[Rfam]
Annotation
Purine riboswitch aptamer: a 102-nucleotide sequence from Bhargavaea cecembensis. The match comes from Rfam's covariance-model search (84 bits).

RNA sequence: GCCCAUUCAAUAUCAGACGCUCAUAUAAUCGCAGGGAUAUGGCCUGCAAGUUUCUACCGGCCCGCCGUAAACGGGCCGACUAUGAGAGGCAACGGAAAUCAG
Numbered sequence: 001g002c003c004c005a006u007u008c009a010a011u012a013u014c015a016g017a018c019g020c021u022c023a024u025a026u027a028a029u030c031g032c033a034g035g036g037a038u039a040u041g042g043c044c045u046g047c048a049a050g051u052u053u054c055u056a057c058c059g060g061c062c063c064g065c066c067g068u069a070a071a072c073g074g075g076c077c078g079a080c081u082a083u084g085a086g087a088g089g090c091a092a093c094g095g096a097a098a099u100c101a102g
Stems, first nucleotide, its partner, number of pairs: 018088001020086006029049001031047005058078007